[Rfam]
RNA sequence: GCUGACGAAGCGGGAGAGAGCGGGUUUCACCCGUCGCCGAAGGAGCAACCGCCCCGGAAACUCUCAGGCAAAAGGACCGCCUUUCGUCG
Numbered sequence: 001g002c003u004g005a006c007g008a009a010g011c012g013g014g015a016g017a018g019a020g021c022g023g024g025u026u027u028c029a030c031c032c033g034u035c036g037c038c039g040a041a042g043g044a045g046c047a048a049c050c051g052c053c054c055c056g057g058a059a060a061c062u063c064u065c066a067g068g069c070a071a072a073a074g075g076a077c078c079g080c081c082u083u084u085c086g087u088c089g
Stems, first nucleotide, its partner, number of pairs: 007083002010080004020034004036069003039065002043063003049057002
RNA: Glycine riboswitch aptamer